[Rfam]
A member of the RNA family "mir-1302 microRNA precursor family" from Carlito syrichta, 52 nucleotides long. The literature on the family includes a 2008 paper in Genome Res by Morin et al., "Application of massively parallel sequencing to microRNA profiling and discovery in human embryonic stem cells". The base pairs follow the family's consensus structure, which was predicted with WAR. It scores 62 bits against the family's covariance model.
RNA sequence: UUUUUAGUAUAACUGUGUCCUAUACAAUACUUGGGAUAUAAUUAUACUAAAA
Number, nucleotide and partner (000 for none) at each position: 001u000002u000003u000004u000005u000006a048007g047008u046009a045010u044011a043012a042013c000014u040015g039016u038017g000018u036019c035020c034021u033022a031023u000024a000025c000026a000027a000028u000029a000030c000031u022032u000033g021034g020035g019036a018037u000038a016039u015040a014041a000042u012043u011044a010045u009046a008047c007048u006049a000050a000051a000052a000